[Rfam]
RNA sequence: CAGGCUUGCUGGAGCCCCCCAGCGGCGCCUGGGAUAUUGCAUUUUUGCCGCAUUUUCCCGACACCGUGAUCAACGAGGGGCUUUU
Numbered sequence: 001c002a003g004g005c006u007u008g009c010u011g012g013a014g015c016c017c018c019c020c021a022g023c024g025g026c027g028c029c030u031g032g033g034a035u036a037u038u039g040c041a042u043u044u045u046u047g048c049c050g051c052a053u054u055u056u057c058c059c060g061a062c063a064c065c066g067u068g069a070u071c072a073a074c075g076a077g078g079g080g081c082u083u084u085u
Base pairs, nucleotide, nucleotide: 012083013082014081015080016079017078018077023066024065025064030060031059032058033057034055
RNA: ybhL leader